Bacterial RNase P class A: a 366-nucleotide RNA sequence from Luteibacter sp. UNCMF366Tsu5.1. It is annotated as a ribozyme. It scores 314 bits against the family's covariance model. The base pairs follow the family's consensus structure, which is taken from published work. Gene Ontology terms of the family: ribonuclease P activity, dimeric ribonuclease P complex and tRNA processing.

Nucleotides: 366
Base pairs, nucleotide, nucleotide: 001362002361003360004359005358006357007356008355009354010353012321013320014319015318016317017316018315020040021039022038023037025035026034027033045349046348047347049346050345051344052343053342054226055225056224057223061258062257063256064255066222067221068220069219070218071085072084073083074082075081086100087098088097089096090095101217102216106215107214108211109210123155124154125151126150127149130148131147132146134144135143163181164180165179166178167177168176182206183204184203185202186201187200188198190196230278231277232276233275240269241268242267243266244265245264249263250262251261252260253259285304286303287302288301289300290299291298292297
Number, partner (000 for none) and nucleotide at each position: 001362g002361g003360a004359g005358u006357c007356g008355g009354c010353c011000a012321g013320a014319c015318a016317g017316u018315c019000g020040c021039g022038a023037u024000a025035c026034g027033c028000c029000u030000u031000g032000u033027g034026c035025g036000c037023a038022u039021c040020g041000a042000g043000g044000a045349a046348a047347g048000u049346c050345c051344g052343g053342g054226c055225u056224c057223c058000a059000u060000a061258g062257g063256g064255c065000a066222g067221g068220g069219u070218g071085c072084c073083a074082g075081g076000u077000a078000a079000c080000g081075c082074c083073u084072g085071g086100g087098c088097a089096g090095c091000g092000u093000g094000a095090g096089c097088u098087g099000a100086c101217g102216g103000c104000c105000a106215g107214u108211g109210c110000a111000a112000c113000a114000g115000a116000g117000a118000g119000c120000a121000g122000a123155c124154c125151g126150c127149c128000g129000a130148u131147g132146g133000c134144c135143c136000c137000g138000c139000a140000a141000g142000g143135g144134g145000a146132u147131c148130a149127g150126g151125u152000a153000a154124g155123g156000g157000u158000g159000a160000a161000a162000g163181g164180g165179u166178g167177c168176g169000g170000u171000a172000a173000g174000a175000g176168c177167g178166c179165a180164c181163c182206g183204c184203g185202u186201g187200c188198g189000g190196g191000g192000c193000u194000a195000a196190c197000g198188u199000c200187g201186c202185a203184c204183g205000g206182c207000a208000c209000g210109g211108u212000a213000a214107a215106c216102c217101c218070c219069a220068c221067c222066c223057g224056g225055a226054g227000c228000a229000a230278g231277a232276c233275c234000a235000a236000a237000u238000a239000a240269g241268g242267g243266a244265a245264c246000c247000a248000u249263g250262a251261c252260g253259c254000g255064g256063c257062c258061c259253g260252c261251g262250u263249c264245g265244u266243u267242c268241c269240c270000g271000g272000g273000u274000a275233g276232g277231u278230u279000g280000c281000u282000a283000g284000a285304g286303c287302c288301u289300g290299g291298u292297g293000g294000c295000g296000a297292c298291g299290c300289c301288a302287g303286g304285c305000c306000g307000a308000g309000a310000a311000g312000a313000a314000u315018g316017a317016c318015u319014g320013u321012c322000a323000c324000g325000u326000c327000g328000c329000a330000a331000g332000a333000c334000g335000c336000a337000c338000a339000g340000a341000a342053c343052c344051c345050g346049g347047c348046u349045u350000a351000c352000c353010g354009g355008c356007c357006g358005a359004c360003u361002c362001c363000u364000u365000u366000u